[Rfam]
RNA sequence: GAAGCAGGUUGCAAUUGCAGGGUUUCCUUAUGUGGAAACACUGCCAUGUCCCUGCUAAGAGCAAUUCUGUUACAUGGGAUUUGAUUUCUCCUCCAUCUUGGUGAAAUUAGUCUCCUUUUAACAGUGACAAGU
Dot-bracket structure: ..((((((.........(((.(((((........))))).))).......))))))........(.((((((.(.......(((((((.((........)).))))))).......).)))))).)......
Numbered sequence: 001g002a003a004g005c006a007g008g009u010u011g012c013a014a015u016u017g018c019a020g021g022g023u024u025u026c027c028u029u030a031u032g033u034g035g036a037a038a039c040a041c042u043g044c045c046a047u048g049u050c051c052c053u054g055c056u057a058a059g060a061g062c063a064a065u066u067c068u069g070u071u072a073c074a075u076g077g078g079a080u081u082u083g084a085u086u087u088c089u090c091c092u093c094c095a096u097c098u099u100g101g102u103g104a105a106a107u108u109a110g111u112c113u114c115c116u117u118u119u120a121a122c123a124g125u126g127a128c129a130a131g132u
Stems, first nucleotide, its partner, number of pairs: 003056006018043003022039005065126001067124006074117001082109007090101002